[Rfam]
RNA: Mammalian CPEB3 ribozyme
Organism: Crocodylus porosus
RNA sequence: AGAGGAUAUGGGGGCCCUAGCAGAAGAGUUCAUGUGGUGACCCCUGUCAGGUAAUACCUGGCAAUACCUGUGAAUUCUGCU
Number, nucleotide and partner (000 for none) at each position: 001a000002g000003a000004g000005g000006a000007u000008a000009u000010g000011g044012g043013g042014g041015c000016c039017c000018u000019a081020g080021c079022a078023g077024a076025a075026g038027a000028g000029u000030u000031c000032a000033u000034g000035u000036g000037g000038u026039g016040a000041c014042c013043c012044c011045u000046g000047u000048c070049a069050g068051g067052u066053a065054a000055u000056a000057c000058c000059u000060g000061g000062c000063a000064a000065u053066a052067c051068c050069u049070g048071u000072g000073a000074a000075u025076u024077c023078u022079g021080c020081u019